[Rfam]
RNA sequence: AAUGGUGAGAGAGAGCUUUCCUCAGUCCACUCAUGGAUAGGAUUUGAUAGGGUUGUCGAAGUAGCUGCCGACUCAUUCACUCAAGCACUCAGUAGAGAUUAAAGGAGUAUCCGGUCUUAUCACUUUCCUUCAUUCCUGCUGCACAUUCAUAUGUUGCUCUCAGAUGUGGCACUUUCGGACCGGACUAGAAGCGGCUGCAGAUGGACCAUCAUCGAAUGUGGGACUUAUGCCUUUCCGAAAUCAUCAGACAAUUUGCUACUGUGGUUGUGUGAAUGAUGCGGGAGAUAUUUUACAUCCCUCUUUCUCUGCGCUUGGACUGAAGGGAGCUCCUCCUUUCCAUUCU
Numbered sequence: 001a002a003u004g005g006u007g008a009g010a011g012a013g014a015g016c017u018u019u020c021c022u023c024a025g026u027c028c029a030c031u032c033a034u035g036g037a038u039a040g041g042a043u044u045u046g047a048u049a050g051g052g053u054u055g056u057c058g059a060a061g062u063a064g065c066u067g068c069c070g071a072c073u074c075a076u077u078c079a080c081u082c083a084a085g086c087a088c089u090c091a092g093u094a095g096a097g098a099u100u101a102a103a104g105g106a107g108u109a110u111c112c113g114g115u116c117u118u119a120u121c122a123c124u125u126u127c128c129u130u131c132a133u134u135c136c137u138g139c140u141g142c143a144c145a146u147u148c149a150u151a152u153g154u155u156g157c158u159c160u161c162a163g164a165u166g167u168g169g170c171a172c173u174u175u176c177g178g179a180c181c182g183g184a185c186u187a188g189a190a191g192c193g194g195c196u197g198c199a200g201a202u203g204g205a206c207c208a209u210c211a212u213c214g215a216a217u218g219u220g221g222g223a224c225u226u227a228u229g230c231c232u233u234u235c236c237g238a239a240a241u242c243a244u245c246a247g248a249c250a251a252u253u254u255g256c257u258a259c260u261g262u263g264g265u266u267g268u269g270u271g272a273a274u275g276a277u278g279c280g281g282g283a284g285a286u287a288u289u290u291u292a293c294a295u296c297c298c299u300c301u302u303u304c305u306c307u308g309c310g311c312u313u314g315g316a317c318u319g320a321a322g323g324g325a326g327c328u329c330c331u332c333c334u335u336u337c338c339a340u341u342c343u
Stems, first nucleotide, its partner, number of pairs: 013329008023319007036306001065284002068281003074275004082267003
Source information: A member of the RNA family "MIR159 microRNA precursor family" from Malus domestica, 343 nucleotides long. The family has 66 seed sequences and 3,649 matches in Rfam 15.1. Its family is annotated with miRNA-mediated post-transcriptional gene silencing and RISC complex in the Gene Ontology. NCBI's taxonomy places the organism under Eukaryota, Streptophyta, Magnoliopsida, eudicotyledons, Malus. It scores 117 bits against the family's covariance model. A reference for the family is Sunkar and Zhu (2004), "Novel and stress-regulated microRNAs and other small RNAs from Arabidopsis", Plant Cell.